[Rfam]
A member of the RNA family "Eukaryotic large subunit ribosomal RNA" from Meloidogyne incognita, 521 nucleotides of a longer RNA. Rfam's curators put it in the seed alignment. The source organism's lineage runs through Eukaryota, Nematoda, Rhabditida, Meloidogyninae and Meloidogyne. Its family is annotated with ribosome and structural constituent of ribosome in the Gene Ontology. The base pairs follow the family's consensus structure, which is taken from published work.

RNA sequence: UAGAAUAAUGUAGGUAAGGGAAGUCGGCAAAUUAGAUUCGUAACUUCGGGAAAAGAAUUGGCUCUAAAGGUUGGGUCAGUCGGGCUGUUGUGUGAAACAGGUGGACUUUGCUCGUGGCUGCUUGCGCUUCCUUUAGGGGCGGCGCUUGUGGACUAGUAAUGAGGACUGCUUUUGGAGCGCUUCAGCUGCGUGCUAUUUCGCAAGAUAUAGUACUUCGAUUGGCGCUGAACAACCAGUUUAGAACUGGCACGAACUCCGGGAAUCCGACUGUCUAAUUAAAACAGAGGAGACGGAUGGUCCUUGCAGGACGUUGACCGUGUCUGAUUUCUGCCCAGUGCUCUGAAUGUUAAGCCAAGGAAACUUGAUUAAGCGCGGGUAAACGGCGGGAGUAACUAUGACUCUCUUAAGGUAGCCAAAUGCCUCGUCGGCUAACUACCGACGCGCACGAAUGGAUCAACGAGAUUCCCACUGUCCCUAUCUACUAUCUAGCGAAACCACAGCCAAGGGAACGGGCUUGGCAA
Numbered sequence: 001u002a003g004a005a006u007a008a009u010g011u012a013g014g015u016a017a018g019g020g021a022a023g024u025c026g027g028c029a030a031a032u033u034a035g036a037u038u039c040g041u042a043a044c045u046u047c048g049g050g051a052a053a054a055g056a057a058u059u060g061g062c063u064c065u066a067a068a069g070g071u072u073g074g075g076u077c078a079g080u081c082g083g084g085c086u087g088u089u090g091u092g093u094g095a096a097a098c099a100g101g102u103g104g105a106c107u108u109u110g111c112u113c114g115u116g117g118c119u120g121c122u123u124g125c126g127c128u129u130c131c132u133u134u135a136g137g138g139g140c141g142g143c144g145c146u147u148g149u150g151g152a153c154u155a156g157u158a159a160u161g162a163g164g165a166c167u168g169c170u171u172u173u174g175g176a177g178c179g180c181u182u183c184a185g186c187u188g189c190g191u192g193c194u195a196u197u198u199c200g201c202a203a204g205a206u207a208u209a210g211u212a213c214u215u216c217g218a219u220u221g222g223c224g225c226u227g228a229a230c231a232a233c234c235a236g237u238u239u240a241g242a243a244c245u246g247g248c249a250c251g252a253a254c255u256c257c258g259g260g261a262a263u264c265c266g267a268c269u270g271u272c273u274a275a276u277u278a279a280a281a282c283a284g285a286g287g288a289g290a291c292g293g294a295u296g297g298u299c300c301u302u303g304c305a306g307g308a309c310g311u312u313g314a315c316c317g318u319g320u321c322u323g324a325u326u327u328c329u330g331c332c333c334a335g336u337g338c339u340c341u342g343a344a345u346g347u348u349a350a351g352c353c354a355a356g357g358a359a360a361c362u363u364g365a366u367u368a369a370g371c372g373c374g375g376g377u378a379a380a381c382g383g384c385g386g387g388a389g390u391a392a393c394u395a396u397g398a399c400u401c402u403c404u405u406a407a408g409g410u411a412g413c414c415a416a417a418u419g420c421c422u423c424g425u426c427g428g429c430u431a432a433c434u435a436c437c438g439a440c441g442c443g444c445a446c447g448a449a450u451g452g453a454u455c456a457a458c459g460a461g462a463u464u465c466c467c468a469c470u471g472u473c474c475c476u477a478u479c480u481a482c483u484a485u486c487u488a489g490c491g492a493a494a495c496c497a498c499a500g501c502c503a504a505g506g507g508a509a510c511g512g513g514c515u516u517g518g519c520a521a
Stems, first nucleotide, its partner, number of pairs: 001488004010482007018474003035059005044049001060245002063242006069234005075223009084186003090180002099172002101169004106164005113156001116153001118151004124145005246250001258467007265459002269283003286322003290318004297309004326453003330384003335381002337377004342373001345372003353364004385403006404408001424440005501518005